[Rfam]
RNA: Arthropod 7SK RNA
RNA sequence: GGGAGCGAGGAUCUCUGUUGAGGUCAAGCUGAACAUUGAUCGCUUUAGGUGUCGGCUGAUCUGCUCAGUAAGUAUCGUCACAGGGUUGCUACGAGAAGUCUGUGAGAUAGCUCCCGUUCAGCGGUCGAGCAUCUGCGAACUUCUCGGAACCAUCGCGAUUGUCCAAAUUGUGUAGGUUAGAUAGCCGCUCCCAUAUGGGGCACUGCAGGGGGCAGUCUGCCAUUAUUUUU
Numbered sequence: 001g002g003g004a005g006c007g008a009g010g011a012u013c014u015c016u017g018u019u020g021a022g023g024u025c026a027a028g029c030u031g032a033a034c035a036u037u038g039a040u041c042g043c044u045u046u047a048g049g050u051g052u053c054g055g056c057u058g059a060u061c062u063g064c065u066c067a068g069u070a071a072g073u074a075u076c077g078u079c080a081c082a083g084g085g086u087u088g089c090u091a092c093g094a095g096a097a098g099u100c101u102g103u104g105a106g107a108u109a110g111c112u113c114c115c116g117u118u119c120a121g122c123g124g125u126c127g128a129g130c131a132u133c134u135g136c137g138a139a140c141u142u143c144u145c146g147g148a149a150c151c152a153u154c155g156c157g158a159u160u161g162u163c164c165a166a167a168u169u170g171u172g173u174a175g176g177u178u179a180g181a182u183a184g185c186c187g188c189u190c191c192c193a194u195a196u197g198g199g200g201c202a203c204u205g206c207a208g209g210g211g212g213c214a215g216u217c218u219g220c221c222a223u224u225a226u227u228u229u230u
Base pairs, nucleotide, nucleotide: 001192002191003190004189005188006187007186017081018080020078029068030067031066034063035062038061039060040059041058042056043055044054199221200220201219202216203215204214205213206212